[Rfam]
RNA sequence: UUCUACGAAACAUAUGUAAGUAUGACAUCUAUACAAGAUUUAUGGUGGUACAGCACUAAAUUCCAAACAAAAGAAUUAAUCUUUUUUUUGUUCAAGUUGAGGGGAUGUGAAAAUCUUACCGGUGGAAGACAAUCUCGAAAUGACAUAAAUUGAUGGUAGAUAUUCAGACUGCUCAUGAUAAGUUGGGUAGUCAAGACGGAAACAGCCGAGAACACACAUCAAGGUCCCAAAUGAUUAUUAAGUGAAAUUAAGGAAGUAACAUAUUGUAUGCAGUUGUAAAGUGAGCCUGGUAGUAGCUAUCUUUUAAUGAACGUUGUAACAACGCUAGCAACAUAUAGACUGUGCGCCGAAAAUUUAACGGGUCUAAAUAAUCAACCGAUAUUGUGUUGAUUUAAAAUAAUUUAUUAAUAUAUUUUAUUUUAAGUCUAGGUAGUAGAACAUUCAGUAAUACCUGUAAUAAAAUAGUGUUUCAUUAUUUUUAGGUAACUGAAGAGAGAAU
Dot-bracket structure: ((((((....(((((....)))))..((((((...(((((((((.(....(((...(...((((...........................................................))))...)..)).)....).))))))))..).)))))).....(((((((((........)))))))))....(((......)))...((((..((...(((......(((((((.............((..(((...(.(........(((((.(((..(((.........)))..))).....(...((.......)).)..)))))....).)...))).))...................))))))))))...)).))))(((((((((((((..............))))))))))).))....))))))(.((((((...(((......(((..(........)..)))...))).))))))..).....
Shown here is a 499-nucleotide part of an RNA, a member of the family "Bacterial large subunit ribosomal RNA".